[Rfam]
RNA sequence: GGCGAUAAACGGUGUCGAAAUAAGCUCUUCGGACCCGGGGGCGGUACCCGGCGCCUCCACCAAAGCCCGGUUGCGCCUGCUUUUGCUGCGCGACGCGGGUUUCGGCGGGGGCGAAAUAGGUUCGACGGGGAGUGUAAAGGACGAUCUUUUGCCCGGCAUGGUUCCGCCGUCAUCGGGCCGAACCUUAUAGUUGCUAAUGACAACUAUGCUCCGGUGGCUCUUGCCGCGUAA
Numbered sequence: 001g002g003c004g005a006u007a008a009a010c011g012g013u014g015u016c017g018a019a020a021u022a023a024g025c026u027c028u029u030c031g032g033a034c035c036c037g038g039g040g041g042c043g044g045u046a047c048c049c050g051g052c053g054c055c056u057c058c059a060c061c062a063a064a065g066c067c068c069g070g071u072u073g074c075g076c077c078u079g080c081u082u083u084u085g086c087u088g089c090g091c092g093a094c095g096c097g098g099g100u101u102u103c104g105g106c107g108g109g110g111g112c113g114a115a116a117u118a119g120g121u122u123c124g125a126c127g128g129g130g131a132g133u134g135u136a137a138a139g140g141a142c143g144a145u146c147u148u149u150u151g152c153c154c155g156g157c158a159u160g161g162u163u164c165c166g167c168c169g170u171c172a173u174c175g176g177g178c179c180g181a182a183c184c185u186u187a188u189a190g191u192u193g194c195u196a197a198u199g200a201c202a203a204c205u206a207u208g209c210u211c212c213g214g215u216g217g218c219u220c221u222u223g224c225c226g227c228g229u230a231a
Stems, first nucleotide, its partner, number of pairs: 001153005013143004025132003029128003035051005052113007154169004